Group II catalytic intron D1-D4-3: a 170-nucleotide RNA from Cohnella herbarum.
Lineage of the source: Bacteria > Bacillota > Bacilli > Caryophanales > Cohnella.
The match comes from Rfam's covariance-model search (32 bits).
RNA sequence: UAGUCCAAGAGGAUGCGUGCGGAGGGCUUGAAGGCAAACCCCGGAACAGACGGCAAAACCAAAUUGGCUGGCGAGAUUGGAUAACCCUGCAAAAGAAGGGAACGUCCAAUAUCACCGUUGAUCUGAAUAUAUUGGACUGCAUCAUUUGUCUCCGGGUGAGUGCGAACGGC
Numbered sequence: 001u002a003g004u005c006c007a008a009g010a011g012g013a014u015g016c017g018u019g020c021g022g023a024g025g026g027c028u029u030g031a032a033g034g035c036a037a038a039c040c041c042c043g044g045a046a047c048a049g050a051c052g053g054c055a056a057a058a059c060c061a062a063a064u065u066g067g068c069u070g071g072c073g074a075g076a077u078u079g080g081a082u083a084a085c086c087c088u089g090c091a092a093a094a095g096a097a098g099g100g101a102a103c104g105u106c107c108a109a110u111a112u113c114a115c116c117g118u119u120g121a122u123c124u125g126a127a128u129a130u131a132u133u134g135g136a137c138u139g140c141a142u143c144a145u146u147u148g149u150c151u152c153c154g155g156g157u158g159a160g161u162g163c164g165a166a167c168g169g170c
Base pairs, nucleotide, nucleotide: 003014004013005012006011028169029168030167034163035162040156041155042154043153044152047139048138049137059135060134061133062132067128069126071124075123076122077121078120079107080106081105082104085100086099087098088097
Dot-bracket structure: ..((((....)))).............(((...((....(((((..(((.........((((....(.(.(...((((((((..((((........))))...))))............))))).).)...)))).)))............))))).....))...))).